This 50-nucleotide RNA sequence from Pangasianodon hypophthalmus belongs to the Rfam family "MAT2A 3'UTR stem loop D". Pairs were carried over by alignment from the consensus structure, which is taken from published work. The literature on the family includes a 2011 paper in Genome Res by Parker et al., "New families of human regulatory RNA structures identified by comparative analysis of vertebrate genomes". The family's RNA type in Rfam is cis-regulatory element.

RNA sequence: UUUGAAGUUUGGUGUAAGUACAGAGGCAUAGUGAAAGGCCAACAUUCAAG
Numbered sequence: 001u002u003u004g005a006a007g008u009u010u011g012g013u014g015u016a017a018g019u020a021c022a023g024a025g026g027c028a029u030a031g032u033g034a035a036a037g038g039c040c041a042a043c044a045u046u047c048a049a050g
Stems, first nucleotide, its partner, number of pairs: 001050006008044001009042005